[Rfam]
RNA: terC RNA
Organism: Alphaproteobacteria bacterium PA2
RNA sequence: CGUGCGGGCCGGGCCCCUCUGACAGUUUGCCACAACGGCAGGCCGUGAUGUCGGACCGCAUCG
Number, nucleotide and partner (000 for none) at each position: 001c000002g000003u000004g000005c000006g057007g056008g000009c054010c053011g052012g051013g000014c000015c000016c000017c000018u000019c000020u000021g000022a046023c045024a000025g043026u042027u000028u040029g039030c038031c000032a000033c000034a000035a000036c000037g000038g030039c029040a028041g000042g026043c025044c000045g023046u022047g000048a000049u000050g000051u012052c011053g010054g009055a000056c007057c006058g000059c000060a000061u000062c000063g000